[Rfam]
Nucleotides: 131
Base pairs, nucleotide, nucleotide: 003060004059005058006057007056008055010051011050018045019044020043022041023040024039072123073122074121075120078117082112083111084110086108087107088106089105
Number, partner (000 for none) and nucleotide at each position: 001000u002000u003060g004059g005058a006057g007056g008055a009000c010051u011050a012000a013000g014000a015000a016000a017000g018045u019044a020043g021000a022041g023040c024039c025000a026000g027000u028000c029000a030000a031000g032000u033000c034000c035000a036000a037000u038000u039024g040023g041022c042000g043020c044019u045018a046000c047000u048000g049000a050011u051010a052000c053000u054000a055008u056007c057006c058005u059004c060003c061000u062000a063000g064000a065000u066000u067000a068000a069000a070000c071000a072123g073122u074121g075120g076000a077000a078117g079000a080000a081000c082112a083111g084110g085000g086108c087107c088106u089105g090000u091000c092000u093000g094000u095000g096000a097000g098000a099000u100000g101000g102000a103000g104000u105089c106088a107087g108086g109000a110084c111083c112082u113000a114000c115000u116000u117078c118000a119000c120075c121074u122073a123072c124000c125000a126000a127000c128000a129000g130000u131000a